[Rfam]
A member of the RNA family "ilvH RNA" from Diaphorobacter sp. HDW4B, 68 nucleotides long.
It scores 83 bits against the family's covariance model.
By type it is a cis-regulatory element.
Lineage of the source: Bacteria > Pseudomonadota > Betaproteobacteria > Comamonadaceae > Diaphorobacter.
RNA sequence: GACGAAUCUAUUGCCUGCCGAGCCUAGUGUUUACCGACAUCAGGGGAGGGCAGCGAGAAGAGGACUCU
Numbered sequence: 001g002a003c004g005a006a007u008c009u010a011u012u013g014c015c016u017g018c019c020g021a022g023c024c025u026a027g028u029g030u031u032u033a034c035c036g037a038c039a040u041c042a043g044g045g046g047a048g049g050g051c052a053g054c055g056a057g058a059a060g061a062g063g064a065c066u067c068u
Base pairs, nucleotide, nucleotide: 011056012055013054015053016052017051018050019049023044024043025042027040028039029038030037031036